Shown here is a 151-nucleotide RNA from Paenibacillus sp. OAS669, a member of the family "c-di-AMP riboswitch aptamer (ydaO/yuaA leader)". The organism belongs to Paenibacillus, within Bacteria.
RNA sequence: AUAUUUAAAGCGCUGAGUUUUCUUUUUAGAAAAACGGGGGAACCAAGUAAUUUGGGGUGAAUCGAUAUGCAGCGGCAAGCUGCCUAUUGUAGGGCGUAUUCUCACCGCCCGAAUCCGACAGCUAACCUCGUAAGCGACUGUGGGAAGGAUA
Dot-bracket structure: ..........((((...((((((....))))))((((((....((.......))(((.....((((...................))))..((((...........))))...))).........)))))).))))...............
Numbered sequence: 001a002u003a004u005u006u007a008a009a010g011c012g013c014u015g016a017g018u019u020u021u022c023u024u025u026u027u028a029g030a031a032a033a034a035c036g037g038g039g040g041a042a043c044c045a046a047g048u049a050a051u052u053u054g055g056g057g058u059g060a061a062u063c064g065a066u067a068u069g070c071a072g073c074g075g076c077a078a079g080c081u082g083c084c085u086a087u088u089g090u091a092g093g094g095c096g097u098a099u100u101c102u103c104a105c106c107g108c109c110c111g112a113a114u115c116c117g118a119c120a121g122c123u124a125a126c127c128u129c130g131u132a133a134g135c136g137a138c139u140g141u142g143g144g145a146a147g148g149a150u151a
Stems, first nucleotide, its partner, number of pairs: 011136004018033006034131006044054002055116003063089004092110004